Group II catalytic intron D1-D4-3: a 172-nucleotide RNA from Pseudomonas fluorescens. Taxonomically the source falls in Pseudomonas fluorescens (Bacteria, Pseudomonadati, Pseudomonadota, Pseudomonadales).
RNA sequence: AUGAGGGUGACCGAGUGUGGGGAGGAAGCGUGGAUCGAAGCCGCGAGCCGAUGUACAAGAAUCGGAUACAAGGCGGAGUCGACUAGGGCGAGCUGGCACGAAACCGCGAAGCUCUUGUGGUCAAAGGUCAGGCUACGUAAAUCCGGCGGUUGUGCGGUGAAGGAUUGCGUUC
Dot-bracket structure: ((..((....))..))...........(.(((..((...(((((((((((...........((((((.....(((.(((((((..((((..((.(........).))...))))............))).)))).)))..))))))))))).))))))....))...))).)